[Rfam]
RNA sequence: CUUUCAAACCACCCCUAGUUGGGAUGGUCGUUGAAAC
Numbered sequence: 001c002u003u004u005c006a007a008a009c010c011a012c013c014c015c016u017a018g019u020u021g022g023g024a025u026g027g028u029c030g031u032u033g034a035a036a037c
Stems, first nucleotide, its partner, number of pairs: 005033003009027002013023003
Dot-bracket structure: ....(((.((..(((.....)))..))...)))....
RNA: CRISPR RNA direct repeat element